Shown here is a 141-nucleotide RNA from Lysinibacillus sphaericus, a member of the family "c-di-AMP riboswitch aptamer (ydaO/yuaA leader)". A search with the family's covariance model found it, with a score of 80 bits. The organism belongs to Lysinibacillus, within Bacteria.
[Rfam]
RNA sequence: AUUUCAUAACAGCCAAAUCUCAAAUUUUUUGAGUACGGAGGACCCAAUAUUUUGGGGUUAAUUCUGCAUAUGUAGAAGGGAUGAGUUCUCUUUCGCCAUCCUACCCGUCAGCUAACUUCGUCGGCUAAAGCGAAGGAGGUC
Numbered sequence: 001a002u003u004u005c006a007u008a009a010c011a012g013c014c015a016a017a018u019c020u021c022a023a024a025u026u027u028u029u030u031g032a033g034u035a036c037g038g039a040g041g042a043c044c045c046a047a048u049a050u051u052u053u054g055g056g057g058u059u060a061a062u063u064c065u066g067c068a069u070a071u072g073u074a075g076a077a078g079g080g081a082u083g084a085g086u087u088c089u090c091u092u093u094c095g096c097c098a099u100c101c102u103a104c105c106c107g108u109c110a111g112c113u114a115a116c117u118u119c120g121u122c123g124g125c126u127a128a129a130g131c132g133a134a135g136g137a138g139g140u141c
Base pairs, nucleotide, nucleotide: 011126012125013124014123019033020032021031022030035121036120037119038118039117040116045054046053055106056105057104063076064075065074066073079101080100081099082098
Dot-bracket structure: ..........((((....((((.......)))).((((((....((......))(((.....((((......))))..((((...............))))..))).........)))))).))))...............